RNA sequence: UAACAAGUCGUAACACCCCUCAAACCAAGACCUCUAGGGUGUAUAAACACGUCUUUCAUAUCUCUAUCUUAGGGUGAUAGAGAAAUAGUAACUCCA
Numbered sequence: 001u002a003a004c005a006a007g008u009c010g011u012a013a014c015a016c017c018c019c020u021c022a023a024a025c026c027a028a029g030a031c032c033u034c035u036a037g038g039g040u041g042u043a044u045a046a047a048c049a050c051g052u053c054u055u056u057c058a059u060a061u062c063u064c065u066a067u068c069u070u071a072g073g074g075u076g077a078u079a080g081a082g083a084a085a086u087a088g089u090a091a092c093u094c095c096a
Stems, first nucleotide, its partner, number of pairs: 014041005020036001027055005062082007